[Rfam]
RNA sequence: AGUUUGUCUGGGAGUUGUGGGUUAUUGAUCAUUAAUAUCAUAUUCUACCCCCACCACUGUGUUUGACUGGCUUUCUUUUUC
Numbered sequence: 001a002g003u004u005u006g007u008c009u010g011g012g013a014g015u016u017g018u019g020g021g022u023u024a025u026u027g028a029u030c031a032u033u034a035a036u037a038u039c040a041u042a043u044u045c046u047a048c049c050c051c052c053a054c055c056a057c058u059g060u061g062u063u064u065g066a067c068u069g070g071c072u073u074u075c076u077u078u079u080u081c
Stems, first nucleotide, its partner, number of pairs: 001072004006067003010064002014060002017054005026040003031036001
RNA: Y RNA